[Rfam]
Annotation
MIR473 microRNA precursor family: an 85-nucleotide RNA sequence from Theobroma umbraticum. The match comes from Rfam's covariance-model search (64 bits). The literature on the family includes a 2005 paper in Plant Cell by Lu et al., "Novel and mechanical stress-responsive MicroRNAs in Populus trichocarpa that are absent from Arabidopsis". Lineage of the source: Eukaryota > Embryophyta > Euphyllophyta > Byttnerioideae > Theobroma. Pairs were carried over by alignment from the consensus structure, which was predicted with WAR. Gene Ontology terms of the family: RISC complex and miRNA-mediated post-transcriptional gene silencing.
RNA sequence: UUUGCUCACUCUCCCUCAAAGGCUUCAGGUAAUGCCGGACACGACCCCAGCAACGCUUGAAGUCUUUGGGGAGAGUGAACAAAAC
Numbered sequence: 001u002u003u004g005c006u007c008a009c010u011c012u013c014c015c016u017c018a019a020a021g022g023c024u025u026c027a028g029g030u031a032a033u034g035c036c037g038g039a040c041a042c043g044a045c046c047c048c049a050g051c052a053a054c055g056c057u058u059g060a061a062g063u064c065u066u067u068g069g070g071g072a073g074a075g076u077g078a079a080c081a082a083a084a085c
Base pairs, nucleotide, nucleotide: 006078007077008076009075010074011073012072013071014070015069017068018067019066020065021064022063023062024061025060026059